Background:
Shown here is a 99-nucleotide sequence from Ligilactobacillus ubinensis, a member of the family "azaaromatic riboswitch aptamer (yjdF RNA)".
RNA sequence: GGAGUGGAAAGUAAAAACACAGUUCGGUUGGUAGUCCGGACAUAGCAGAUAGCUAUCAGUAACCUGCCUCCUUGGUUGUCCUUCUUUCUUAAUUAACUU
Numbered sequence: 001g002g003a004g005u006g007g008a009a010a011g012u013a014a015a016a017a018c019a020c021a022g023u024u025c026g027g028u029u030g031g032u033a034g035u036c037c038g039g040a041c042a043u044a045g046c047a048g049a050u051a052g053c054u055a056u057c058a059g060u061a062a063c064c065u066g067c068c069u070c071c072u073u074g075g076u077u078g079u080c081c082u083u084c085u086u087u088c089u090u091a092a093u094u095a096a097c098u099u
Stems, first nucleotide, its partner, number of pairs: 006089006022041006042056005066076003

The base pairs follow the family's consensus structure, which is taken from published work. NCBI's taxonomy places the organism under Bacteria, Bacillati, Bacillota, Lactobacillaceae, Ligilactobacillus.